[Rfam]
A member of the RNA family "SAM riboswitch aptamer (S box leader)" from Oceanobacillus iheyensis, 117 nucleotides long. NCBI's taxonomy places the organism under Bacteria, Caryophanales, Bacillaceae, Oceanobacillus, Oceanobacillus iheyensis. Rfam describes the family as follows. The SAM riboswitch is found upstream of a number of genes which code for proteins involved in methionine or cysteine biosynthesis in Gram-positive bacteria.
RNA sequence: UUCUUAUCUAGAGAGAUUGAGGGAUCAGGCCCUAUGACAUCUCGGCAGCGGAUUCUUUAUAUUAAAGAAUACUGUGCCAAUUCCUGCAAAUGCAAACGAGCAUUUGAAAGAUGAGAA
Numbered sequence: 001u002u003c004u005u006a007u008c009u010a011g012a013g014a015g016a017u018u019g020a021g022g023g024a025u026c027a028g029g030c031c032c033u034a035u036g037a038c039a040u041c042u043c044g045g046c047a048g049c050g051g052a053u054u055c056u057u058u059a060u061a062u063u064a065a066a067g068a069a070u071a072c073u074g075u076g077c078c079a080a081u082u083c084c085u086g087c088a089a090a091u092g093c094a095a096a097c098g099a100g101c102a103u104u105u106g107a108a109a110g111a112u113g114a115g116a117a
Stems, first nucleotide, its partner, number of pairs: 001117008013043005021032003026086004044078004049074002052070006082109001087106006